Annotation: This 82-nucleotide RNA from Zizania palustris belongs to the Rfam family "Small nucleolar RNA U54". It is annotated as a C/D-box small nucleolar RNA. Pairs were carried over by alignment from the consensus structure, which was predicted with PFOLD. Rfam describes the family as follows. U54 is a C/D box small nucleolar RNA, which acts as a methylation guide for 18S ribosomal RNA in plants. The family is grouped with related families in Rfam's "U54 clan". Gene Ontology terms of the family: RNA processing and nucleolus. A search with the family's covariance model found it, with a score of 80 bits. The family has 21 seed sequences and 614 matches in Rfam 15.1.
RNA sequence: AGCUCAGUGAUUGUAACCACUUGCAUUGGCUAUAUACGCUAUACCGAACUUAGUUUGAUGAACAAAUUAAAAUAUGAGAGCU
Numbered sequence: 001a002g003c004u005c006a007g008u009g010a011u012u013g014u015a016a017c018c019a020c021u022u023g024c025a026u027u028g029g030c031u032a033u034a035u036a037c038g039c040u041a042u043a044c045c046g047a048a049c050u051u052a053g054u055u056u057g058a059u060g061a062a063c064a065a066a067u068u069a070a071a072a073u074a075u076g077a078g079a080g081c082u
Stems, first nucleotide, its partner, number of pairs: 001082005